[Rfam]
RNA sequence: UACAAUAGAAUCGGCUCACUCAAAGGCGGUCUGACUCACUCCCCCGAUUGAAAGGUGGUGAUGUCCAUGACAACAUUUGAAGCAUUAAUGCUAAUGUUAACAUUCGGAUUACUGAUUGUUGCUAUGUUGUCACUCGACAAAAAGAAAUAGACCUCCCUUGAGCCUAGACAACUUGUAGGGAUUGGUCUAUUUCAUUACCCAAUUCGAGCCAGCCACUCUUUGAGGGACGGCUAUUGUACUCGACCAUAGGUGUUAGCGCACCUAUGG
Numbered sequence: 001u002a003c004a005a006u007a008g009a010a011u012c013g014g015c016u017c018a019c020u021c022a023a024a025g026g027c028g029g030u031c032u033g034a035c036u037c038a039c040u041c042c043c044c045c046g047a048u049u050g051a052a053a054g055g056u057g058g059u060g061a062u063g064u065c066c067a068u069g070a071c072a073a074c075a076u077u078u079g080a081a082g083c084a085u086u087a088a089u090g091c092u093a094a095u096g097u098u099a100a101c102a103u104u105c106g107g108a109u110u111a112c113u114g115a116u117u118g119u120u121g122c123u124a125u126g127u128u129g130u131c132a133c134u135c136g137a138c139a140a141a142a143a144g145a146a147a148u149a150g151a152c153c154u155c156c157c158u159u160g161a162g163c164c165u166a167g168a169c170a171a172c173u174u175g176u177a178g179g180g181a182u183u184g185g186u187c188u189a190u191u192u193c194a195u196u197a198c199c200c201a202a203u204u205c206g207a208g209c210c211a212g213c214c215a216c217u218c219u220u221u222g223a224g225g226g227a228c229g230g231c232u233a234u235u236g237u238a239c240u241c242g243a244c245c246a247u248a249g250g251u252g253u254u255a256g257c258g259c260a261c262c263u264a265u266g267g
Base pairs, nucleotide, nucleotide: 001238002237003236004235005234007232008231013210014209015208016207017206019162020161021160022159023158025156026155029152030151031150032149036061037060038059040058041057043055044054069131070130071129072128073127074126075125082097083096084095106123107122174194175193216226217225244267245266246265247264248263249262250261251260252259253258
RNA: BsrG
Organism: Schinkia azotoformans